Rfam assigns this 78-nucleotide sequence from Pogonomyrmex barbatus to the family "mir-219 microRNA precursor family".
Pairs were carried over by alignment from the consensus structure, which was predicted with RNAalifold.
Rfam links the family to the GO terms RISC complex and miRNA-mediated post-transcriptional gene silencing.
RNA sequence: UCAGGCUAUGAUUGUCCAAACGCAAUUCUUGUCUACACGAUAUGAUAUCAAGAAUUGUGUGGGGACAUCAGCGCUCGG
Number, nucleotide and partner (000 for none) at each position: 001u000002c077003a000004g075005g074006c073007u000008a000009u070010g069011a068012u067013u000014g066015u065016c064017c063018a000019a000020a000021c059022g058023c057024a056025a055026u054027u053028c052029u051030u050031g049032u000033c000034u000035a000036c000037a000038c000039g000040a000041u000042a000043u000044g000045a000046u000047a000048u000049c031050a030051a029052g028053a027054a026055u025056u024057g023058u022059g021060u000061g000062g000063g017064g016065a015066c014067a012068u011069c010070a009071g000072c000073g006074c005075u004076c000077g002078g000